[Rfam]
Shown here is a 132-nucleotide RNA from Sciurus carolinensis, a member of the family "Small nucleolar RNA SNORA69". Rfam's curators write: U69 is a member of the H/ACA class of small nucleolar RNAs (snoRNAs) which act as guides in the the modification of uridines to pseudouridines. Its family is annotated with nucleolus and RNA processing in the Gene Ontology. The match comes from Rfam's covariance-model search (102 bits).

RNA sequence: AAAAAAUACUUCCAUUACAGUGCUUUAUUUUAUGGAAGUACUGCCAUUAUCCUGCUGAAAGAAAAGCUAUGUUGAUCGUUUUUUAUUUUGCCUUUCUGAGGGUAAAAUCAUGAUAGGCUGACAUGGUCUGUU
Numbered sequence: 001a002a003a004a005a006a007u008a009c010u011u012c013c014a015u016u017a018c019a020g021u022g023c024u025u026u027a028u029u030u031u032a033u034g035g036a037a038g039u040a041c042u043g044c045c046a047u048u049a050u051c052c053u054g055c056u057g058a059a060a061g062a063a064a065a066g067c068u069a070u071g072u073u074g075a076u077c078g079u080u081u082u083u084u085a086u087u088u089u090g091c092c093u094u095u096c097u098g099a100g101g102g103u104a105a106a107a108u109c110a111u112g113a114u115a116g117g118c119u120g121a122c123a124u125g126g127u128c129u130g131u132u
Stems, first nucleotide, its partner, number of pairs: 003056001006053001018043009067126008076117002083110001085108010